[Rfam]
RNA sequence: CUAACCUCCCAAGGCAACAGCAGAAGUGCUCAUGGCAUGGCCCUGUCAUAUUCCAGUGAAUCUGAAAAUUGUGCU
Numbered sequence: 001c002u003a004a005c006c007u008c009c010c011a012a013g014g015c016a017a018c019a020g021c022a023g024a025a026g027u028g029c030u031c032a033u034g035g036c037a038u039g040g041c042c043c044u045g046u047c048a049u050a051u052u053c054c055a056g057u058g059a060a061u062c063u064g065a066a067a068a069u070u071g072u073g074c075u
Stems, first nucleotide, its partner, number of pairs: 013042003019075004024070002026038003047064002050061004

Description
A member of the RNA family "Mammalian CPEB3 ribozyme" from Crocodylus porosus, 75 nucleotides long. The mammalian CPEB3 ribozyme is a self cleaving RNA located in the second intron of the CPEB3 gene which belongs to a family of genes regulating messenger RNA polyadenylation.